RNA sequence: ACCGGUCCUCGGUAGUGGCUCCCGGGUGAAUACCACCCCGUGAGCUUCGAUCGAAGACCGGC
Numbered sequence: 001a002c003c004g005g006u007c008c009u010c011g012g013u014a015g016u017g018g019c020u021c022c023c024g025g026g027u028g029a030a031u032a033c034c035a036c037c038c039c040g041u042g043a044g045c046u047u048c049g050a051u052c053g054a055a056g057a058c059c060g061g062c
Stems, first nucleotide, its partner, number of pairs: 002061006009054005017046005023040004027035002
RNA: Actino-pnp RNA